[Rfam]
RNA sequence: AACCCUCACACGCAGAAAGGCUUGGACAGCGGCGGGGGACCCACCGCAGUUCGGAUGUUCACCCACAUCCUUGGGGUCAAGCCGGAACCGUCAUGACGGCGCCGGCCGGGCGAUACCCCACGUCCACCGCGGCACCACGCGCGGCGGCACGCCCGAACCCGACAGCUCACCUCGCAGGCGCAGCAAGGGGAACA
Numbered sequence: 001a002a003c004c005c006u007c008a009c010a011c012g013c014a015g016a017a018a019g020g021c022u023u024g025g026a027c028a029g030c031g032g033c034g035g036g037g038g039a040c041c042c043a044c045c046g047c048a049g050u051u052c053g054g055a056u057g058u059u060c061a062c063c064c065a066c067a068u069c070c071u072u073g074g075g076g077u078c079a080a081g082c083c084g085g086a087a088c089c090g091u092c093a094u095g096a097c098g099g100c101g102c103c104g105g106c107c108g109g110g111c112g113a114u115a116c117c118c119c120a121c122g123u124c125c126a127c128c129g130c131g132g133c134a135c136c137a138c139g140c141g142c143g144g145c146g147g148c149a150c151g152c153c154c155g156a157a158c159c160c161g162a163c164a165g166c167u168c169a170c171c172u173c174g175c176a177g178g179c180g181c182a183g184c185a186a187g188g189g190g191a192a193c194a
Stems, first nucleotide, its partner, number of pairs: 011180003019030001032175006042073002074160003082105004108154004
Dot-bracket structure: ..........(((.....(..........).((((((....((............................))(((.....((((................))))..((((.......................................))))...))).........))))))..)))..............

This 194-nucleotide RNA from Nakamurella panacisegetis belongs to the Rfam family "c-di-AMP riboswitch aptamer (ydaO/yuaA leader)". It scores 46 bits against the family's covariance model. The base pairs follow the family's consensus structure.